Shown here is a 135-nucleotide sequence from Paenibacillus yonginensis, a member of the family "SAM riboswitch aptamer (S box leader)". Taxonomically the source falls in Paenibacillus (Bacteria, Bacilli, Caryophanales, Paenibacillaceae).
[Rfam]
RNA sequence: AUCUUAUCAAGAGUAGGUGGAGGGACUGGCCCGAUGAAACCCGGCAACCGGCGAGCGAUCGCACGGUGCUAAUUCUUGCGGAACUUUAGGAACCCGUAUGGUACGGGGCUUUCUAAGGUCUCUGAGAGAUGAGAG
Numbered sequence: 001a002u003c004u005u006a007u008c009a010a011g012a013g014u015a016g017g018u019g020g021a022g023g024g025a026c027u028g029g030c031c032c033g034a035u036g037a038a039a040c041c042c043g044g045c046a047a048c049c050g051g052c053g054a055g056c057g058a059u060c061g062c063a064c065g066g067u068g069c070u071a072a073u074u075c076u077u078g079c080g081g082a083a084c085u086u087u088a089g090g091a092a093c094c095c096g097u098a099u100g101g102u103a104c105g106g107g108g109c110u111u112u113c114u115a116a117g118g119u120c121u122c123u124g125a126g127a128g129a130u131g132a133g134a135g
Stems, first nucleotide, its partner, number of pairs: 002134007013042001016041003022032003026078001028076002043070004048066002051062004074127001079124004